[Rfam]
RNA sequence: AGUCCCUUGCGGCCCGGUUCAGUCGAUCAUCGCAUGCUGAACCGACCACUCGCCGGGGACG
Numbered sequence: 001a002g003u004c005c006c007u008u009g010c011g012g013c014c015c016g017g018u019u020c021a022g023u024c025g026a027u028c029a030u031c032g033c034a035u036g037c038u039g040a041a042c043c044g045a046c047c048a049c050u051c052g053c054c055g056g057g058g059a060c061g
Base pairs, nucleotide, nucleotide: 002060003059004058005057006056012047015044016043017042018041019040020039021038022037023036024032025031
RNA: gabT RNA